This 142-nucleotide RNA sequence from Miscanthus lutarioriparius belongs to the Rfam family "Small nucleolar RNA F1/F2/snoR5a". The base pairs follow the family's consensus structure, which was predicted with PFOLD. Rfam classes the family as an H/ACA-box small nucleolar RNA. A search with the family's covariance model found it, with a score of 95 bits. Rfam links the family to the GO terms nucleolus and RNA processing.
[Rfam]
RNA sequence: CAAUGCCAUUUGGUAUCUGACUUGCAGUCAUUCUUUGUGAUUGUGUGUCUCGAAACAUCGCAGAAUACAAGGGGGGACGGAUCUUGCGACAUUGGUUGCUUAUUUAUGAGUUUUUCCAGUUACUAUAUUGUGGUAUCUCUAG
Numbered sequence: 001c002a003a004u005g006c007c008a009u010u011u012g013g014u015a016u017c018u019g020a021c022u023u024g025c026a027g028u029c030a031u032u033c034u035u036u037g038u039g040a041u042u043g044u045g046u047g048u049c050u051c052g053a054a055a056c057a058u059c060g061c062a063g064a065a066u067a068c069a070a071g072g073g074g075g076g077a078c079g080g081a082u083c084u085u086g087c088g089a090c091a092u093u094g095g096u097u098g099c100u101u102a103u104u105u106a107u108g109a110g111u112u113u114u115u116c117c118a119g120u121u122a123c124u125a126u127a128u129u130g131u132g133g134u135a136u137c138u139c140u141a142g
Stems, first nucleotide, its partner, number of pairs: 004062003008058002019049003023045007077134002080131001091120005098111003